[Rfam]
Nucleotides: 103
Stems, first nucleotide, its partner, number of pairs: 009043002012040001014037002017034002020031003076096007
Number, partner (000 for none) and nucleotide at each position: 001000g002000g003000u004000g005000g006000u007000u008000g009043g010042u011000g012040g013000c014037g015036c016000c017034c018033u019000u020031c021030c022029c023000u024000g025000u026000g027000g028000u029022g030021g031020g032000u033018g034017g035000a036015g037014u038000a039000u040012u041000a042010a043009c044000g045000c046000a047000u048000a049000g050000c051000u052000g053000u054000u055000a056000u057000c058000a059000c060000a061000a062000c063000a064000u065000g066000c067000a068000a069000a070000a071000u072000c073000u074000c075000u076096a077095a078094c079093c080092c081091c082090g083000c084000u085000u086000a087000a088000u089000u090082c091081g092080g093079g094078g095077u096076u097000u098000u099000u100000u101000u102000a103000u